[Rfam]
RNA sequence: AUAUGAUUCUGGUAGGUGAGGCUACUAUAAGGAUACGGAUUGCUGCCGCGAAGUGAUGGAGACAUCAUGAGAAGGUUGAACAGGCUAUAUCGAAUCAAGGUAUAGCAUAAUGCAAUUUCAUUGCCUUAUAGAGCUAAAGCUCAAACGGUGAUUAUUUUGA
Numbered sequence: 001a002u003a004u005g006a007u008u009c010u011g012g013u014a015g016g017u018g019a020g021g022c023u024a025c026u027a028u029a030a031g032g033a034u035a036c037g038g039a040u041u042g043c044u045g046c047c048g049c050g051a052a053g054u055g056a057u058g059g060a061g062a063c064a065u066c067a068u069g070a071g072a073a074g075g076u077u078g079a080a081c082a083g084g085c086u087a088u089a090u091c092g093a094a095u096c097a098a099g100g101u102a103u104a105g106c107a108u109a110a111u112g113c114a115a116u117u118u119c120a121u122u123g124c125c126u127u128a129u130a131g132a133g134c135u136a137a138a139g140c141u142c143a144a145a146c147g148g149u150g151a152u153u154a155u156u157u158u159g160a
Stems, first nucleotide, its partner, number of pairs: 005156003010151001011146001013098001015141003020135003025131008039116005045076003055066004084106003089101003
The record is a 160-nucleotide sequence from Anaerocolumna aminovalerica, which matches "M-box riboswitch aptamer (ykoK leader)" in Rfam.
M-box riboswitch, also know as ykoK leader is described as a metaloregulatory RNA that sense divalent metals and function as a genetic control element of genes related to divalent metal transport in bacteria. It was first reported upstream of the B.subtilis ykoK gene and genes with related functions in other bacteria.
Its family is annotated with regulation of gene expression and response to magnesium ion in the Gene Ontology.
A search with the family's covariance model found it, with a score of 116 bits.